[Rfam]
Nucleotides: 073
Base pairs, nucleotide, nucleotide: 001073002072003071004070005069
Number, partner (000 for none) and nucleotide at each position: 001073g002072u003071u004070u005069g006000g007000g008000u009000g010000a011000u012000g013000a014000c015000u016000u017000c018000a019000g020000u021000u022000u023000g024000u025000c026000g027000g028000a029000u030000a031000c032000c033000c034000c035000u036000u037000c038000a039000c040000u041000c042000a043000u044000u045000g046000u047000a048000u049000g050000a051000g052000u053000g054000a055000g056000a057000a058000c059000a060000g061000c062000a063000g064000u065000c066000u067000g068000a069005c070004a071003a072002a073001c
Source information
The record is a 73-nucleotide RNA sequence from Athene cunicularia, which matches "Small nucleolar RNA SNORD101" in Rfam. Rfam links the family to the GO terms RNA processing and nucleolus. The match comes from Rfam's covariance-model search (80 bits). The source organism's lineage runs through Eukaryota, Teleostomi, Amniota, Sauria and Athene. A reference for the family is Vitali et al. (2003), "Identification of 13 novel human modification guide RNAs", Nucleic Acids Res.